[Rfam]
RNA sequence: UUACUCUAAAUAGAGCAGGCGAUACACUUCUUUAAGUGUGUGGGGCUGGGCCGGUUUGCCGGCAGCAGGAUAAAAACCUGUGGGACUAUA
Numbered sequence: 001u002u003a004c005u006c007u008a009a010a011u012a013g014a015g016c017a018g019g020c021g022a023u024a025c026a027c028u029u030c031u032u033u034a035a036g037u038g039u040g041u042g043g044g045g046c047u048g049g050g051c052c053g054g055u056u057u058g059c060c061g062g063c064a065g066c067a068g069g070a071u072a073a074a075a076a077c078c079u080g081u082g083g084g085a086c087u088a089u090a
Stems, first nucleotide, its partner, number of pairs: 010089004016084001018047003022041006050063005065081005
Dot-bracket structure: .........((((..(.(((.((((((........))))))...)))..(((((....))))).(((((.......)))))..).)))).